Notes
Bacterial large subunit ribosomal RNA: a 589-nucleotide part of an RNA from Acetivibrio saccincola. Its family is annotated with ribosome and structural constituent of ribosome in the Gene Ontology. It scores 2930 bits against the family's covariance model.
[Rfam]
RNA sequence: CCCGCGACAAGACGGAAAGACCCCAUGGAGCUUUACUGUAGCCUGAUACUGGGUUUUGGUAUUCUUUGUACAGGAUAGGUGGGAGGCAUAGAAGUAUGUACGCCAGUAUAUAUGGAGCCGUCGUUGGGAUACCACUCUAAGGAUGCUGAAGCUCUAACCAGAGGCCGUGAAUCCGGUCUUGGGACAAUGUCAGGUGGGCAGUUUGACUGGGGCGGUCGCCUCCUAAAAGGUAACGGAGGCGUCCAAAGGUUACCUCAGCACGGUUGGAAAUCGUGCAUUGAGUGCAAAGGCAUAAGGUAGCCUGACUGCGAGACAGACAGGUCGAGCAGGUACGAAAGUAGGGCUUAGUGAUCCGGCGGUAUGAGAGUGGAAUUGCCGUCGCUCAACGGAUAAAAGCUACCCUGGGGAUAACAGGCUUAUCUCCCCCAAGAGUCCACAUCGACGGGGAGGUUUGGCACCUCGAUGUCGGCUCAUCGCAUCCUGGAGCUGGAGUAGGUUCCAAGGGUUUGGCUGUUCGCCAAUUAAAGCGGUACGCGAGCUGGGUUCAGAACGUCGUGAGACAGUUCGGUCCCUAUCUGUCGUGGGCGUA
Numbered sequence: 001c002c003c004g005c006g007a008c009a010a011g012a013c014g015g016a017a018a019g020a021c022c023c024c025a026u027g028g029a030g031c032u033u034u035a036c037u038g039u040a041g042c043c044u045g046a047u048a049c050u051g052g053g054u055u056u057u058g059g060u061a062u063u064c065u066u067u068g069u070a071c072a073g074g075a076u077a078g079g080u081g082g083g084a085g086g087c088a089u090a091g092a093a094g095u096a097u098g099u100a101c102g103c104c105a106g107u108a109u110a111u112a113u114g115g116a117g118c119c120g121u122c123g124u125u126g127g128g129a130u131a132c133c134a135c136u137c138u139a140a141g142g143a144u145g146c147u148g149a150a151g152c153u154c155u156a157a158c159c160a161g162a163g164g165c166c167g168u169g170a171a172u173c174c175g176g177u178c179u180u181g182g183g184a185c186a187a188u189g190u191c192a193g194g195u196g197g198g199c200a201g202u203u204u205g206a207c208u209g210g211g212g213c214g215g216u217c218g219c220c221u222c223c224u225a226a227a228a229g230g231u232a233a234c235g236g237a238g239g240c241g242u243c244c245a246a247a248g249g250u251u252a253c254c255u256c257a258g259c260a261c262g263g264u265u266g267g268a269a270a271u272c273g274u275g276c277a278u279u280g281a282g283u284g285c286a287a288a289g290g291c292a293u294a295a296g297g298u299a300g301c302c303u304g305a306c307u308g309c310g311a312g313a314c315a316g317a318c319a320g321g322u323c324g325a326g327c328a329g330g331u332a333c334g335a336a337a338g339u340a341g342g343g344c345u346u347a348g349u350g351a352u353c354c355g356g357c358g359g360u361a362u363g364a365g366a367g368u369g370g371a372a373u374u375g376c377c378g379u380c381g382c383u384c385a386a387c388g389g390a391u392a393a394a395a396g397c398u399a400c401c402c403u404g405g406g407g408a409u410a411a412c413a414g415g416c417u418u419a420u421c422u423c424c425c426c427c428a429a430g431a432g433u434c435c436a437c438a439u440c441g442a443c444g445g446g447g448a449g450g451u452u453u454g455g456c457a458c459c460u461c462g463a464u465g466u467c468g469g470c471u472c473a474u475c476g477c478a479u480c481c482u483g484g485a486g487c488u489g490g491a492g493u494a495g496g497u498u499c500c501a502a503g504g505g506u507u508u509g510g511c512u513g514u515u516c517g518c519c520a521a522u523u524a525a526a527g528c529g530g531u532a533c534g535c536g537a538g539c540u541g542g543g544u545u546c547a548g549a550a551c552g553u554c555g556u557g558a559g560a561c562a563g564u565u566c567g568g569u570c571c572c573u574a575u576c577u578g579u580c581g582u583g584g585g586c587g588u589a
Base pairs, nucleotide, nucleotide: 001585002584003583004582005581006580007579008578010577011576012575014572015571022406023405024404025403027402028401029398030397031396032395033394035202036201037200038199042194043193044192045191046190047189048188051154052153053152054151055150056149057148058147059146060145061144062143063142064141065140066139068137078136079135080134081133082132085119086118087117094113095112096111097110098109099108100107101106158182159181160180162179163178164177165176166175167174205217206216207215208214218240219239220238221237222236223235241387243343244342249301250300251299252298253297254296255281256280258276259275260274261273262272263271282291283290306329307328308327309326312323313322314321331340332339333338354381355380356379357378358377359376360375363374364373415456416455417454419453420450421449422448423447424446425445426444430440431439467542468540469539470538471537472534473531474530475529476528477527480505481504483500484499485498486497487496488495507521508520509519510518511517548566549565550564551563552561553560554559